The record is a 139-nucleotide RNA sequence from Podarcis muralis, which matches "Small nucleolar RNA SNORA64/SNORA10 family" in Rfam. Gene Ontology terms of the family: nucleolus and RNA processing. About the family: This family belongs to the H/ACA class of small nucleolar RNAs (snoRNAs) which act as guides in the the modification of uridines to pseudouridines. The family is grouped with related families in Rfam's "SNORA64 clan". The family's consensus secondary structure is taken from published work. Rfam classes the family as an H/ACA-box small nucleolar RNA. The literature on the family includes a 1999 paper in EMBO J by Narayanan et al., "Nucleolar localization signals of box H/ACA small nucleolar RNAs".
[Rfam]
RNA sequence: ACUCUCUCCGCUCUGCUCAGUUGUACCUGGUCCAAGUGGUGCAACUGUCGUUUUUCGAGAGGGAAAGCGAAUGAGUUUGUUUGCACGGCAGUGAGAUUCAAUGAAAUAGUCUCCCUGUUCCUUUUCAUACUCAACAAGG
Numbered sequence: 001a002c003u004c005u006c007u008c009c010g011c012u013c014u015g016c017u018c019a020g021u022u023g024u025a026c027c028u029g030g031u032c033c034a035a036g037u038g039g040u041g042c043a044a045c046u047g048u049c050g051u052u053u054u055u056c057g058a059g060a061g062g063g064a065a066a067g068c069g070a071a072u073g074a075g076u077u078u079g080u081u082u083g084c085a086c087g088g089c090a091g092u093g094a095g096a097u098u099c100a101a102u103g104a105a106a107u108a109g110u111c112u113c114c115c116u117g118u119u120c121c122u123u124u125u126c127a128u129a130c131u132c133a134a135c136a137a138g139g
Base pairs, nucleotide, nucleotide: 002067003066005064006063007062008061011059012058013057015055019046020045021044022043023042024041025040026039075130076129078127079126083120090116091115094112095111096110097109098108